[Rfam]
RNA sequence: GGUGACUAGGGUUCCGGCGAAAGCCGGUCCGAGAGUUACCGACCGCCGAAAGGCGGUUACACGGCGGGAAAAAAGCCCGGGAGGA
Numbered sequence: 001g002g003u004g005a006c007u008a009g010g011g012u013u014c015c016g017g018c019g020a021a022a023g024c025c026g027g028u029c030c031g032a033g034a035g036u037u038a039c040c041g042a043c044c045g046c047c048g049a050a051a052g053g054c055g056g057u058u059a060c061a062c063g064g065c066g067g068g069a070a071a072a073a074a075g076c077c078c079g080g081g082a083g084g085a
Stems, first nucleotide, its partner, number of pairs: 001040006009030002014027002016024001018023001041058007060080001062083001066078003
Guanidine-I riboswitch aptamer: an 85-nucleotide RNA from Dickeya dadantii. On this family, see Barrick et al., Proc Natl Acad Sci U S A 2004: "New RNA motifs suggest an expanded scope for riboswitches in bacterial genetic control".